[Rfam]
RNA: Group II catalytic intron D1-D4-1
Nucleotides: 084
Base pairs, nucleotide, nucleotide: 001027004023005022006021007020008019009018010017011016040047041046049084050083051082058077059076060075061074062073
Number, partner (000 for none) and nucleotide at each position: 001027c002000u003000a004023c005022u006021g007020a008019c009018a010017u011016c012000g013000g014000a015000a016011g017010g018009u019008g020007u021006c022005g023004g024000g025000a026000u027001g028000g029000a030000u031000g032000u033000u034000c035000a036000g037000a038000a039000g040047u041046c042000a043000g044000c045000c046041g047040a048000g049084g050083c051082c052000g053000u054000a055000g056000u057000a058077g059076u060075g061074c062073u063000u064000u065000u066000g067000a068000c069000c070000a071000a072000u073062a074061g075060c076059a077058u078000g079000a080000a081000g082051g083050g084049c